A member of the RNA family "Lysine riboswitch aptamer" from Ligilactobacillus ubinensis, 180 nucleotides long. About the family: Riboswitches are metabolite binding domains within certain messenger RNAs that serve as precision sensors for their corresponding targets. The match comes from Rfam's covariance-model search (107 bits). Gene Ontology term of the family: lysine biosynthetic process.
RNA sequence: UUAUCGAAAAGAGGUUGCAUUUGUUAAGAGUAGCUAAAGGAUUGUCAGUAAGGUGAUGUUAGACUUUAGUAAAAGGGACAAAUGCCGAAGUUUGAUUAUACCUUACCUUAAUCAGGCUGGGCUCUAAUUUAAGAAAUUAGAGACUGUCGCAAUAAUAUAUUGCGGAGCGCUAUCGAGAUG
Numbered sequence: 001u002u003a004u005c006g007a008a009a010a011g012a013g014g015u016u017g018c019a020u021u022u023g024u025u026a027a028g029a030g031u032a033g034c035u036a037a038a039g040g041a042u043u044g045u046c047a048g049u050a051a052g053g054u055g056a057u058g059u060u061a062g063a064c065u066u067u068a069g070u071a072a073a074a075g076g077g078a079c080a081a082a083u084g085c086c087g088a089a090g091u092u093u094g095a096u097u098a099u100a101c102c103u104u105a106c107c108u109u110a111a112u113c114a115g116g117c118u119g120g121g122c123u124c125u126a127a128u129u130u131a132a133g134a135a136a137u138u139a140g141a142g143a144c145u146g147u148c149g150c151a152a153u154a155a156u157a158u159a160u161u162g163c164g165g166a167g168c169g170c171u172a173u174c175g176a177g178a179u180g
Stems, first nucleotide, its partner, number of pairs: 008173001010171002017085009033070007089118010119145002122142008147165007
NCBI's taxonomy places the organism under Bacteria, Bacillota, Lactobacillales, Lactobacillaceae, Ligilactobacillus.